[Rfam]
RNA sequence: GAGUCUAACUCGCAUGCGAGUGUUUGGGCGUUUAAAACCCGAGCGCGUAAUGAAAGUGAAAGUCGAGAUCUCUGUCGUGGAGAGCACCGACGCCCGGACCAGAGCUUUUGCGAAGGUUCUGCGGUAGAGCAUGCGUGUUGGGACCCGAAAGAUGGUGAACUAUGCCUGAAUAGGGUGAAGCCAGAGGAAACUCUGGUGGAGGCUCGUAGCGAUUCUGACGUGCAAAUCGAUCGUCGAAUUUGGGUAUAGGGGCGAAAGACUAAUCGAACCAUCUAGUAGCUGGUU
Number, nucleotide and partner (000 for none) at each position: 001g000002a000003g000004u000005c141006u140007a139008a138009c137010u000011c135012g134013c133014a132015u131016g130017c129018g000019a000020g046021u045022g044023u000024u000025u041026g040027g039028g038029c000030g000031u000032u000033u000034a000035a000036a000037a000038c028039c027040c026041g025042a000043g000044c022045g021046c020047g000048u000049a000050a057051u056052g000053a000054a000055a000056g051057u050058g000059a000060a000061a000062g091063u090064c089065g088066a000067g000068a000069u083070c082071u081072c000073u000074g000075u000076c000077g000078u000079g000080g000081a071082g070083a069084g000085c000086a000087c000088c065089g064090a063091c062092g000093c124094c123095c121096g120097g119098a117099c116100c115101a000102g000103a000104g111105c110106u000107u000108u000109u000110g105111c104112g000113a000114a000115g100116g099117u098118u000119c097120u096121g095122c000123g094124g093125u000126a000127g000128a000129g017130c016131a015132u014133g013134c012135g011136u000137g009138u008139u007140g006141g005142g000143a000144c283145c282146c000147g280148a000149a000150a000151g273152a272153u271154g270155g269156u268157g000158a000159a000160c249161u248162a247163u246164g245165c244166c243167u242168g241169a240170a239171u237172a000173g205174g204175g203176u202177g000178a000179a000180g197181c196182c195183a194184g193185a192186g191187g000188a000189a000190a000191c186192u185193c184194u183195g182196g181197u180198g000199g000200a000201g000202g176203c175204u174205c173206g000207u000208a000209g234210c233211g232212a231213u000214u230215c229216u000217g228218a227219c000220g000221u000222g000223c000224a000225a000226a000227u218228c217229g215230a214231u212232c211233g210234u209235c000236g000237a171238a000239u170240u169241u168242g167243g166244g165245u164246a163247u162248a161249g160250g000251g261252g260253c000254g000255a000256a000257a000258g000259a000260c252261u251262a000263a000264u000265c000266g000267a000268a156269c155270c154271a153272u152273c151274u000275a000276g000277u000278a000279g000280c147281u000282g145283g144284u000285u000